RNA sequence: GGGUUGUGGGCGGUCACUCUAGGCACCACAGCACUGUGCUGGGGAUGUUGCAGCUGCCUGGGAGUGAUUUUGCACAGUCC
Numbered sequence: 001g002g003g004u005u006g007u008g009g010g011c012g013g014u015c016a017c018u019c020u021a022g023g024c025a026c027c028a029c030a031g032c033a034c035u036g037u038g039c040u041g042g043g044g045a046u047g048u049u050g051c052a053g054c055u056g057c058c059u060g061g062g063a064g065u066g067a068u069u070u071u072g073c074a075c076a077g078u079c080c
Base pairs, nucleotide, nucleotide: 001080002079003078004077005076006075007074008073010071012069013068014067015066016065017064018063019062020060021059022058023057024056025055026053029050030049031048032047033046034044035043
Dot-bracket structure: ((((((((.(.(((((((((((((((..(((((((.......)).)))))..).)))))).)))))))).).))))))))